Shown here is a 121-nucleotide RNA sequence, a member of the family "LOOT RNA".
It is annotated as a small RNA.
Rfam's curators put it in the seed alignment.
RNA sequence: UGCCUAAACCCAGAGUAUUCUCUGGACAUGGCACCAAAACCGGUGAAGGUUAGAAAGCUCGUCGUCAGAGCGCCUUCACCGGUUAUCUCCCGAAAGGGAGGUAGGUAGCCGAAAGGCUAUC
Numbered sequence: 001u002g003c004c005u006a007a008a009c010c011c012a013g014a015g016u017a018u019u020c021u022c023u024g025g026a027c028a029u030g031g032c033a034c035c036a037a038a039a040c041c042g043g044u045g046a047a048g049g050u051u052a053g054a055a056a057g058c059u060c061g062u063c064g065u066c067a068g069a070g071c072g073c074c075u076u077c078a079c080c081g082g083u084u085a086u087c088u089c090c091c092g093a094a095a096g097g098g099a100g101g102u103a104g105g106u107a108g109c110c111g112a113a114a115g116g117c118u119a120u121c
Stems, first nucleotide, its partner, number of pairs: 001033004010025006040082011057071004084103008104121006